[Rfam]
RNA sequence: GGGGGUGACUGGUUUCGACAGGGUAGGUCUGAGGCGGGCAGCAAGCCGUGGUCUCCUCGCCACGUUAAACAGGGGUACCGUCAAACUGAAUUGACGACACUGAUUCUUAUGAGCCUCAGCUGGCUCUUGCCGCUUAACUUACUGUAGCGGCCGUCUAACCGGGGGUCUCUCCCGCUUCCGGGGUGACGUCAUCCGAGGGGGAUGCGCGCACGGACGUGGCUGGUAUGCCGCGCGUCAAGACUGAACCAGCUGGGACGCUGACUGUGGGUCACGGGACACGAUGCGUUCGAGAUGGGACACGUGACUGAGCUUGGAGACACCUGCCAGGGAUCUGCUUUGGACCGGAGUUCGAUUCUCCGCACCUCCACCA
Dot-bracket structure: (((((((...........((((((((((.(..((((((...(((((((((([.[[[[..))))).......]]]].]...............................................(.((((.............)))).)..((((...((((((((.[[[[[[))))))))...))))........]]]]]]....[[[.[[[....((((((....]]].]]]...........)))))).((((((....(((..[[[[.[.[)))....)))))).........].].]]]]...)))))......))))))..).))))))))))...(((((.......))))))))))))....

Record summary:
This 370-nucleotide RNA sequence from Olsenella profusa belongs to the Rfam family "transfer-messenger RNA". Gene Ontology term of the family: RNA catabolic process. A search with the family's covariance model found it, with a score of 136 bits. The family's RNA type in Rfam is non-coding RNA gene. NCBI's taxonomy places the organism under Bacteria, Bacillati, Coriobacteriales, Olsenella, Olsenella profusa.